[Rfam]
RNA: Guanidine-II riboswitch aptamer (mini-ykkC)
Organism: Jannaschia sp. CCS1
RNA sequence: CCGCCGGGACGACCCGGCCAUGUACGGGUAGUUGUCAGGACGACCUGC
Dot-bracket structure: ..((((((....)))))).................((((....)))).